[Rfam]
RNA sequence: UUGCACAUGGACGUGUCUGCUCCUCAUUCCUUUGGAAGCAGGAAUACAUGCUACAUUAAAAAGGCGUUCUCAGGGCUGCCAGCCUUAUAGUAGAAGUUGAGUAGUAGUAUAUUUCUCCUGCAUUA
Number, nucleotide and partner (000 for none) at each position: 001u000002u000003g051004c050005a049006c000007a000008u046009g000010g000011a000012c000013g000014u000015g000016u042017c041018u040019g039020c038021u037022c000023c035024u000025c000026a000027u000028u000029c000030c000031u000032u000033u000034g000035g023036a000037a021038g020039c019040a018041g017042g016043a000044a000045u000046a008047c000048a000049u005050g004051c003052u000053a000054c000055a000056u000057u000058a000059a000060a000061a000062a000063g118064g117065c000066g115067u000068u000069c000070u000071c000072a000073g000074g000075g105076c104077u000078g000079c101080c099081a098082g097083c096084c000085u094086u093087a000088u000089a000090g000091u000092a000093g086094a085095a000096g083097u082098u081099g080100a000101g079102u000103a000104g076105u075106a000107g000108u000109a000110u000111a000112u000113u000114u000115c066116u000117c064118c063119u000120g000121c000122a000123u000124u000125a000
RNA: Small nucleolar RNA U109